[Rfam]
RNA sequence: GUCGAGCUCAGUAAUGUGGGCUUGUAACCCAAAUGGGGACAUUAAUGUGGUGGAAUGUUGAGCUGUACCAGAUGGUUGGGCUUGAUAGACGAGUUUCUGGCCUGCCCUCUCCAAGCACAGAGUUGGAUCACGGGGCCUAUUUGAAAGAAUGGACUUCUUGAUCCCUAAAGUGGGGUGGACUGCGUGAGGCUGGUUUCACAGAGCAACGAACAGCUCCCGCUCUGUGCAGUGGAAGGACAACAGGCUGGUGUCUUUCAAGUCUAAAAAUGCCUAAUGGGCAUCUUCAAUUAAACCACUACUUUU
Numbered sequence: 001g002u003c004g005a006g007c008u009c010a011g012u013a014a015u016g017u018g019g020g021c022u023u024g025u026a027a028c029c030c031a032a033a034u035g036g037g038g039a040c041a042u043u044a045a046u047g048u049g050g051u052g053g054a055a056u057g058u059u060g061a062g063c064u065g066u067a068c069c070a071g072a073u074g075g076u077u078g079g080g081c082u083u084g085a086u087a088g089a090c091g092a093g094u095u096u097c098u099g100g101c102c103u104g105c106c107c108u109c110u111c112c113a114a115g116c117a118c119a120g121a122g123u124u125g126g127a128u129c130a131c132g133g134g135g136c137c138u139a140u141u142u143g144a145a146a147g148a149a150u151g152g153a154c155u156u157c158u159u160g161a162u163c164c165c166u167a168a169a170g171u172g173g174g175g176u177g178g179a180c181u182g183c184g185u186g187a188g189g190c191u192g193g194u195u196u197c198a199c200a201g202a203g204c205a206a207c208g209a210a211c212a213g214c215u216c217c218c219g220c221u222c223u224g225u226g227c228a229g230u231g232g233a234a235g236g237a238c239a240a241c242a243g244g245c246u247g248g249u250g251u252c253u254u255u256c257a258a259g260u261c262u263a264a265a266a267a268u269g270c271c272u273a274a275u276g277g278g279c280a281u282c283u284u285c286a287a288u289u290a291a292a293c294c295a296c297u298a299c300u301u302u303u
Base pairs, nucleotide, nucleotide: 001040002039003038004023005022006021007020008019009018010017028037029036030035044302045301047299048298049297050296051295052294053293056290057289058287059286060285061283062282064280065279066278068277069276070275074271075270076269078262079261080260081259082258083257084256085255087253088252089251092249097248098247099246100245101244102243103242104241106236107235110233111232112231113230115227116226117225118224119223120222121221122220123219125164126163127162128161129160130159132157133156134155135154137152138151139150140149141148142147165170172217173216174215175214176213181210183208184207185206190201191200192199
Dot-bracket structure: ((((((((((......)))))))....(((....))))))...((.(((((((..(((((((.(((.(((...(((.((((((((.(((..(....((((((((.((..((((.(((((((((.((((((.((((.((((((....)))))).)))).))))))(....).(((((....(.(((....(((......)))....))).)..))))).)))))))))..)))).))....))))))))).))).))))))))......)))...)))))).)).))).))..))))))).)).